About this RNA:
The record is a 180-nucleotide RNA from Hydrogenophaga sp. RAC07, which matches "6S / SsrS RNA" in Rfam. About the family: E. coli 6S RNA was the first non coding RNA to be sequenced, but its function was unknown until recently. It scores 58 bits against the family's covariance model. The organism belongs to Hydrogenophaga, within Bacteria.

[Rfam]
RNA sequence: GCUCGUCUGCAGUGCGCGCCGGGCUUUAUAUUUCCUUGAACCAAUGCUCAUAGAGCCCGGGCUUGGUACAUUGCGUGGCUGGCGUGAGCGUCUCGCGUCAGACGAUCCCGAAGCCACGCUGCCCUUGCCCACCUGAACCCCGGUUCAGGAUGCCGGUCCGGCGGCACUUGCAGACACCUU
Numbered sequence: 001g002c003u004c005g006u007c008u009g010c011a012g013u014g015c016g017c018g019c020c021g022g023g024c025u026u027u028a029u030a031u032u033u034c035c036u037u038g039a040a041c042c043a044a045u046g047c048u049c050a051u052a053g054a055g056c057c058c059g060g061g062c063u064u065g066g067u068a069c070a071u072u073g074c075g076u077g078g079c080u081g082g083c084g085u086g087a088g089c090g091u092c093u094c095g096c097g098u099c100a101g102a103c104g105a106u107c108c109c110g111a112a113g114c115c116a117c118g119c120u121g122c123c124c125u126u127g128c129c130c131a132c133c134u135g136a137a138c139c140c141c142g143g144u145u146c147a148g149g150a151u152g153c154c155g156g157u158c159c160g161g162c163g164g165c166a167c168u169u170g171c172a173g174a175c176a177c178c179u180u
Base pairs, nucleotide, nucleotide: 005175006174007173008172009171010170011169012167013166014165015164017163018162019161033150034149035148037147038146039145040144041143042142059130060129061128065124066123070120073119074118075117076116077115078114079113084108089104090103091102092101093100
Dot-bracket structure: ....(((((((((((.(((.............(((.((((((................(((...((...(..(((((((....(....(((((......)))))...)....))))))))..))...)))...........)))))))))..........))))))).))))))).....